[Rfam]
RNA sequence: AUACAAAGUAGAGGUGCGUUUUUCAAGAGUAACCGAGCCAAUAUCAUAAGGGAUACAGGAGGCUCGUCGAAAGGGGAAAAUGCCGAAGAAAAAGACGGCCUUAUCUGUUUUUUUCUGGUUGUGCGGUUAAGAGCCGUAUGACUGUCAUUGGGUUUCCCAAUGGAGCGCUACUGGAUAA
Number, nucleotide and partner (000 for none) at each position: 001a000002u000003a000004c000005a000006a000007a172008g171009u170010a169011g168012a000013g000014g000015u000016g083017c082018g081019u080020u079021u078022u077023u076024c075025a000026a000027g000028a000029g000030u000031a000032a000033c000034c066035g065036a064037g063038c062039c061040a000041a000042u000043a000044u000045c000046a000047u000048a000049a000050g000051g000052g000053a000054u000055a000056c000057a000058g000059g000060a000061g039062g038063c037064u036065c035066g034067u000068c000069g000070a000071a000072a000073g000074g000075g024076g023077a022078a021079a020080a019081u018082g017083c016084c000085g000086a000087a116088g115089a114090a113091a112092a111093a110094g109095a108096c107097g106098g105099c000100c000101u000102u000103a000104u000105c098106u097107g096108u095109u094110u093111u092112u091113u090114u089115c088116u087117g143118g142119u141120u140121g139122u138123g137124c136125g135126g134127u133128u000129a000130a000131g000132a000133g127134c126135c125136g124137u123138a122139u121140g120141a119142c118143u117144g000145u163146c162147a161148u160149u159150g158151g157152g000153u000154u000155u000156c000157c151158c150159a149160a148161u147162g146163g145164a000165g000166c000167g000168c011169u010170a009171c008172u007173g000174g000175a000176u000177a000178a000
Lysine riboswitch aptamer: a 178-nucleotide sequence from Anaerotignum lactatifermentans. The family's consensus secondary structure is taken from published work. The source organism's lineage runs through Bacteria, Bacillota, Lachnospirales, Anaerotignaceae and Anaerotignum lactatifermentans. The match comes from Rfam's covariance-model search (117 bits). Rfam describes the family as follows. Riboswitches are metabolite binding domains within certain messenger RNAs that serve as precision sensors for their corresponding targets.